[Rfam]
RNA sequence: AAAGCAGGCCAGACAAUCGCUGCUUGCAUCGCAAGGUGCAAGGGGAGGAAAGUCCGGACUCCACAGGGCAGGGUGUUGGCUAACAGCCAUCCACGGUAACGUGCGGAAUAGGGCCACAGAGACGAGUCUUGCCGCCAGGUUCGCCUGGCGGGAAGGGUGAAACGCGGUAACCUCCACCUGGAGCAAUCCCAAAUAGGCAGGCAUCGAGGCGGCCCGCUGAGCCUGCGGGUAGGGAGCUGGAGCCGGCUGGUAACAGCCGGCCUAGAGGAAUGGUUGUCACGCGCCGCCGUGCCGCAAGGUGCGGUGACGUGCACAGAAUCCGGCUUAUCGGCCUGCUUUGCGC
Numbered sequence: 001a002a003a004g005c006a007g008g009c010c011a012g013a014c015a016a017u018c019g020c021u022g023c024u025u026g027c028a029u030c031g032c033a034a035g036g037u038g039c040a041a042g043g044g045g046a047g048g049a050a051a052g053u054c055c056g057g058a059c060u061c062c063a064c065a066g067g068g069c070a071g072g073g074u075g076u077u078g079g080c081u082a083a084c085a086g087c088c089a090u091c092c093a094c095g096g097u098a099a100c101g102u103g104c105g106g107a108a109u110a111g112g113g114c115c116a117c118a119g120a121g122a123c124g125a126g127u128c129u130u131g132c133c134g135c136c137a138g139g140u141u142c143g144c145c146u147g148g149c150g151g152g153a154a155g156g157g158u159g160a161a162a163c164g165c166g167g168u169a170a171c172c173u174c175c176a177c178c179u180g181g182a183g184c185a186a187u188c189c190c191a192a193a194u195a196g197g198c199a200g201g202c203a204u205c206g207a208g209g210c211g212g213c214c215c216g217c218u219g220a221g222c223c224u225g226c227g228g229g230u231a232g233g234g235a236g237c238u239g240g241a242g243c244c245g246g247c248u249g250g251u252a253a254c255a256g257c258c259g260g261c262c263u264a265g266a267g268g269a270a271u272g273g274u275u276g277u278c279a280c281g282c283g284c285c286g287c288c289g290u291g292c293c294g295c296a297a298g299g300u301g302c303g304g305u306g307a308c309g310u311g312c313a314c315a316g317a318a319u320c321c322g323g324c325u326u327a328u329c330g331g332c333c334u335g336c337u338u339u340g341c342g343c
Base pairs, nucleotide, nucleotide: 001339002338003337004336005335006334007333008332009331010330011328012278013277014276015275016274017273018272020045021044023042024041025040026039027038028037050326051325052324054323055322056321057320058319059183060182061181062180066215067214068213069212071179072178073177074176075175077089078088079087080086091105092103093102094101095100106174107173111172112171113168114167115166128156129155132151133150134149135148136147137146138145139144187235188234189233190232197226198225199224200223201222202221208218209217210216242261243260244259245258246257247256248255249254
Bacterial RNase P class A: a 343-nucleotide RNA sequence from Cupriavidus pinatubonensis. Taxonomically the source falls in Cupriavidus pinatubonensis (Bacteria, Pseudomonadati, Pseudomonadota, Betaproteobacteria). The family's consensus secondary structure is taken from published work.